[Rfam]
RNA sequence: GGUUCUAUGGUGUAGUGGUUAGCACUCUGGACUUUGAAUCCCGCGACCUGGGUUCGACUCCCGGUAGGACCU
Dot-bracket structure: (((((((..((((........)))).(.(((.......))).)....(((((.......)))))))))))).
Rfam assigns this 72-nucleotide RNA from Gossypium gossypioides to the family "tRNA". Rfam links the family to the GO term triplet codon-amino acid adaptor activity.